[Rfam]
RNA sequence: UCCCGUGGCUAGUACUCGCGCUGUGACAUGUGUUGCCAGCCACAUCACAGUCAGAGUUCUAGCUAUACGG
Numbered sequence: 001u002c003c004c005g006u007g008g009c010u011a012g013u014a015c016u017c018g019c020g021c022u023g024u025g026a027c028a029u030g031u032g033u034u035g036c037c038a039g040c041c042a043c044a045u046c047a048c049a050g051u052c053a054g055a056g057u058u059c060u061a062g063c064u065a066u067a068c069g070g
Base pairs, nucleotide, nucleotide: 005066006065009062010061011060012059014057015056016055017054021050022049023048024047025046026045030043031042032041